[Rfam]
RNA sequence: CGCGCCCUGCCGCCGAAUCCCGUCGUGCGGUCACCCACAACUGCACCCAGGAACCGGGGAACCACCACCCGGGGUGAAUCGGACAGCCGGCCCCCGCCGGCCGACCGUAGGAGACCUUCCGCUCCGAACCCGUCAGCUAACCCGGUAGGCGAGGGAAGGAAAGGAGAA
Numbered sequence: 001c002g003c004g005c006c007c008u009g010c011c012g013c014c015g016a017a018u019c020c021c022g023u024c025g026u027g028c029g030g031u032c033a034c035c036c037a038c039a040a041c042u043g044c045a046c047c048c049a050g051g052a053a054c055c056g057g058g059g060a061a062c063c064a065c066c067a068c069c070c071g072g073g074g075u076g077a078a079u080c081g082g083a084c085a086g087c088c089g090g091c092c093c094c095c096g097c098c099g100g101c102c103g104a105c106c107g108u109a110g111g112a113g114a115c116c117u118u119c120c121g122c123u124c125c126g127a128a129c130c131c132g133u134c135a136g137c138u139a140a141c142c143c144g145g146u147a148g149g150c151g152a153g154g155g156a157a158g159g160a161a162a163g164g165a166g167a168a
Base pairs, nucleotide, nucleotide: 011151012150013149014148018052019051020050053146054145055144056143057142058141063071072131073130074129080107081106082105110125111124112123113122

A member of the RNA family "c-di-AMP riboswitch aptamer (ydaO/yuaA leader)" from Streptomyces aidingensis, 168 nucleotides long.